[Rfam]
RNA sequence: UAGGAAGAUUGACGGGGGCUGCCUUUAGUACGAGAGGACCGAGGUGGACCCACCGCUGGUGAGCCGGUUGUUACGCCAGUAGCAUGGCCGGGUAGCUAUGUGGGGAAUAGAUAAGCGCUGAAAGCAUCUAAGUGCGAAACUAGCCCGAAGAUGAAUCUUCCACAUAAGGGUCGUUGUAGACUACGACGUUGAUAGGCUGCAGGUAUACGUGUAGAAACACAUUGAGCUGAGCAGUACUAAUUACCCAACA
Number, nucleotide and partner (000 for none) at each position: 001u000002a000003g161004g160005a159006a158007g157008a156009u155010u154011g000012a000013c147014g146015g145016g144017g000018g000019c047020u046021g045022c044023c043024u042025u041026u000027a000028g000029u000030a000031c000032g000033a000034g000035a000036g000037g000038a000039c000040c000041g025042a024043g023044g022045u021046g020047g019048a000049c104050c103051c102052a101053c100054c000055g000056c000057u098058g097059g096060u000061g000062a000063g000064c091065c090066g089067g088068u087069u084070g083071u082072u081073a080074c079075g000076c000077c000078a000079g074080u073081a072082g071083c070084a069085u000086g000087g068088c067089c066090g065091g064092g000093u000094a000095g000096c059097u058098a057099u000100g053101u052102g051103g050104g049105g000106a000107a000108u142109a141110g140111a000112u000113a000114a000115g135116c134117g133118c132119u131120g000121a000122a000123a000124g000125c000126a000127u000128c000129u000130a000131a119132g118133u117134g116135c115136g000137a000138a000139a000140c110141u109142a108143g000144c016145c015146c014147g013148a000149a000150g000151a000152u000153g000154a010155a009156u008157c007158u006159u005160c004161c003162a000163c000164a000165u248166a000167a000168g246169g245170g244171u243172c188173g187174u186175u185176g184177u000178a000179g000180a000181c000182u000183a000184c176185g175186a174187c173188g172189u000190u000191g000192a000193u239194a238195g237196g235197c234198u233199g232200c231201a000202g228203g227204u000205a000206u000207a000208c000209g222210u221211g220212u219213a000214g000215a000216a000217a000218c000219a212220c211221a210222u209223u000224g000225a000226g000227c203228u202229g000230a000231g200232c199233a198234g197235u196236a000237c195238u194239a193240a000241u000242u000243a171244c170245c169246c168247a000248a165249c000250a000

This 250-nucleotide part of an RNA from Dyadobacter helix belongs to the Rfam family "Bacterial large subunit ribosomal RNA". Its Rfam clan is "LSU clan". Lineage of the source: Bacteria > Pseudomonadati > Bacteroidota > Cytophagales > Dyadobacter. The match comes from Rfam's covariance-model search (2700 bits).